[Rfam]
RNA sequence: AAGAGCAUUGAGUUGAUACAGACUGAGAAGAUUGACUCGGGAACAAA
Numbered sequence: 001a002a003g004a005g006c007a008u009u010g011a012g013u014u015g016a017u018a019c020a021g022a023c024u025g026a027g028a029a030g031a032u033u034g035a036c037u038c039g040g041g042a043a044c045a046a047a
Base pairs, nucleotide, nucleotide: 008040010038011037012036013035014034015033016032017031

Shown here is a 47-nucleotide RNA sequence from Amborella trichopoda, a member of the family "Plastid-rpl16 group II-D1 intron". Gene Ontology term of the family: Group II intron splicing. Plastid-rpl16 is a non-coding RNA (ncRNA) recognised in plastids. It was recognised in and intronic region of a ribosome rpl16 gene. The family has 538 seed sequences and 1,446 matches in Rfam 15.1. It is one of the family's seed sequences. The family's consensus secondary structure was predicted with LocARNA. A reference for the family is Richter et al. (2023), "Retrograde signaling in plants: A critical review focusing on the GUN pathway and beyond", Plant Commun.